[Rfam]
RNA sequence: UGCUCCUGUCUGAUGAUGAGCCCAUUGCCCUGAGCUCUUGUGAUGCUGGCUUCAAAGUAAACGCUCUGAAGUGAAGGAGCAGGGC
Numbered sequence: 001u002g003c004u005c006c007u008g009u010c011u012g013a014u015g016a017u018g019a020g021c022c023c024a025u026u027g028c029c030c031u032g033a034g035c036u037c038u039u040g041u042g043a044u045g046c047u048g049g050c051u052u053c054a055a056a057g058u059a060a061a062c063g064c065u066c067u068g069a070a071g072u073g074a075a076g077g078a079g080c081a082g083g084g085c
Stems, first nucleotide, its partner, number of pairs: 002085004009078002
Small nucleolar RNA SNORD105: an 85-nucleotide RNA sequence from Mus musculus. Pairs were carried over by alignment from the consensus structure. It is annotated as a C/D-box small nucleolar RNA. The family has 15 seed sequences and 146 matches in Rfam 15.1. Rfam links the family to the GO terms nucleolus and RNA processing. U105 belongs to the C/D family of snoRNAs. It is encoded in an intron of the Suppressor of SWI4 1 homolog (Ssf-1) (Peter Pan homolog) gene. and is predicted to guide 2'O-ribose methylation of residue U799 of the small 18S rRNA subunit.